[Rfam]
RNA sequence: AGGGACAUAGCUCAAUUGGUAGAGCCCCAAGAUUUGGCCUUGGAGGUUUCAGGUUCGAGACCUGAUGUCCCUG
Numbered sequence: 001a002g003g004g005a006c007a008u009a010g011c012u013c014a015a016u017u018g019g020u021a022g023a024g025c026c027c028c029a030a031g032a033u034u035u036g037g038c039c040u041u042g043g044a045g046g047u048u049u050c051a052g053g054u055u056c057g058a059g060a061c062c063u064g065a066u067g068u069c070c071c072u073g
Base pairs, nucleotide, nucleotide: 001072002071003070004069005068006067007066010025011024012023013022027043028042029041030040031039049065050064051063052062053061
The family of this 73-nucleotide RNA from Candidatus Uabimicrobium amorphum is "tRNA". By type it is a transfer RNA. From the family's description: Transfer RNA (tRNA) molecules are approximately 80 nucleotides in length.